[Rfam]
RNA sequence: AGCCGUCUUCCACUGCAACGGAUCGUCCGGCACGUGCCUGCCGGCAGAGGAGUACAUCA
Numbered sequence: 001a002g003c004c005g006u007c008u009u010c011c012a013c014u015g016c017a018a019c020g021g022a023u024c025g026u027c028c029g030g031c032a033c034g035u036g037c038c039u040g041c042c043g044g045c046a047g048a049g050g051a052g053u054a055c056a057u058c059a
Base pairs, nucleotide, nucleotide: 009051010050011049013047014046015045027044028043029042030041031040032039

Shown here is a 59-nucleotide RNA from Leucobacter chromiiresistens, a member of the family "msiK RNA". The family's RNA type in Rfam is cis-regulatory element.